[Rfam]
The record is a 52-nucleotide sequence from Carlito syrichta, which matches "MAT2A 3'UTR stem loop C" in Rfam.
The match comes from Rfam's covariance-model search (60 bits).
RNA sequence: GCUUUUCAAAGAGUUGCUGUAGCUACAGAGAAACCAGUUUCCUUUGGAGAGC
Numbered sequence: 001g002c003u004u005u006u007c008a009a010a011g012a013g014u015u016g017c018u019g020u021a022g023c024u025a026c027a028g029a030g031a032a033a034c035c036a037g038u039u040u041c042c043u044u045u046g047g048a049g050a051g052c
Stems, first nucleotide, its partner, number of pairs: 001052009012039005018033001019026002
Background:
The family's RNA type in Rfam is cis-regulatory element.